This 93-nucleotide sequence from Oceanirhabdus seepicola belongs to the Rfam family "Selenocysteine transfer RNA". The match comes from Rfam's covariance-model search (63 bits). The source organism's lineage runs through Bacteria, Bacillota, Clostridia, Eubacteriales and Oceanirhabdus.
[Rfam]
RNA sequence: GGGGGUAGAUAGAUGCUGGUGUGUCUGCUGGUCUUCAAAACCAUGUUGCGGCGUUAAGAGCGUCGUGGGUGAGUUCGAUUCUCACAUACUCCC
Numbered sequence: 001g002g003g004g005g006u007a008g009a010u011a012g013a014u015g016c017u018g019g020u021g022u023g024u025c026u027g028c029u030g031g032u033c034u035u036c037a038a039a040a041c042c043a044u045g046u047u048g049c050g051g052c053g054u055u056a057a058g059a060g061c062g063u064c065g066u067g068g069g070u071g072a073g074u075u076c077g078a079u080u081c082u083c084a085c086a087u088a089c090u091c092c093c
Stems, first nucleotide, its partner, number of pairs: 001093007008085001011026006027046002029043004048066005070084004